[Rfam]
RNA sequence: CUGCAUAUCACGGGGAGCCUGCAGGACGAGACGGCAAGCUGAGAGGGGGCGGCGCCCGCCCCGACCCGAAGAACCUGAUAUGGAUAAUGCCAACGAAGGGAGCGAGUGCAUGAGCACCA
Numbered sequence: 001c002u003g004c005a006u007a008u009c010a011c012g013g014g015g016a017g018c019c020u021g022c023a024g025g026a027c028g029a030g031a032c033g034g035c036a037a038g039c040u041g042a043g044a045g046g047g048g049g050c051g052g053c054g055c056c057c058g059c060c061c062c063g064a065c066c067c068g069a070a071g072a073a074c075c076u077g078a079u080a081u082g083g084a085u086a087a088u089g090c091c092a093a094c095g096a097a098g099g100g101a102g103c104g105a106g107u108g109c110a111u112g113a114g115c116a117c118c119a
Stems, first nucleotide, its partner, number of pairs: 008105002011068004017039002020036002046062007074099003081092003
RNA: TPP riboswitch aptamer (THI element)